[Rfam]
RNA sequence: CCCUAAACCCGAUGGCAGCGGAAAUCCUUUUUGGCUGCACGAAACCUUCACUUCCUCCAACACACGCAGCCCAAAAAGAUUGCAGCAAACAGCGGGGCUGCAG
Number, nucleotide and partner (000 for none) at each position: 001c000002c000003c000004u000005a000006a000007a000008c000009c095010c094011g093012a000013u091014g090015g000016c000017a000018g086019c085020g000021g000022a000023a081024a080025u079026c078027c000028u000029u076030u075031u074032u073033g072034g070035c069036u068037g067038c066039a000040c000041g000042a000043a000044a000045c000046c000047u000048u000049c000050a000051c000052u000053u000054c000055c000056u000057c000058c000059a000060a000061c000062a000063c000064a000065c000066g038067c037068a036069g035070c034071c000072c033073a032074a031075a030076a029077a000078g026079a025080u024081u023082g000083c000084a000085g019086c018087a000088a000089a000090c014091a013092g000093c011094g010095g009096g000097g000098c000099u000100g000101c000102a000103g000
About this RNA: The family of this 103-nucleotide sequence from Pedobacter sp. Leaf194 is "Flavo-1 RNA". NCBI's taxonomy places the organism under Bacteria, Pseudomonadati, Sphingobacteriia, Sphingobacteriales, Pedobacter. A search with the family's covariance model found it, with a score of 56 bits.